A member of the RNA family "Bacillaceae-1 RNA" from Peribacillus cavernae, 63 nucleotides long. Pairs were carried over by alignment from the consensus structure, which is taken from published work.
RNA sequence: UUGAAAAGAACGUCGACUAAGAGCCGCCACGUCCUGUGGCGAACGUCGACGUCAGCACACCCU
Numbered sequence: 001u002u003g004a005a006a007a008g009a010a011c012g013u014c015g016a017c018u019a020a021g022a023g024c025c026g027c028c029a030c031g032u033c034c035u036g037u038g039g040c041g042a043a044c045g046u047c048g049a050c051g052u053c054a055g056c057a058c059a060c061c062c063u
Stems, first nucleotide, its partner, number of pairs: 011051007026040005

About this RNA
The family's RNA type in Rfam is small RNA.